[Rfam]
RNA sequence: AGGCGCGUAGCUCAGCUGGUUAGAGCACUACCUUGACAUGGUAGGGGUCGUUGGUUCGAGUCCAAUCGCGCCUA
Numbered sequence: 001a002g003g004c005g006c007g008u009a010g011c012u013c014a015g016c017u018g019g020u021u022a023g024a025g026c027a028c029u030a031c032c033u034u035g036a037c038a039u040g041g042u043a044g045g046g047g048u049c050g051u052u053g054g055u056u057c058g059a060g061u062c063c064a065a066u067c068g069c070g071c072c073u074a
Stems, first nucleotide, its partner, number of pairs: 001073007010026004028044005050066005

This 74-nucleotide RNA from Ectothiorhodospira marina belongs to the Rfam family "tRNA". NCBI's taxonomy places the organism under Bacteria, Pseudomonadota, Gammaproteobacteria, Chromatiales, Ectothiorhodospira. By type it is a transfer RNA. Pairs were carried over by alignment from the consensus structure, which is taken from published work.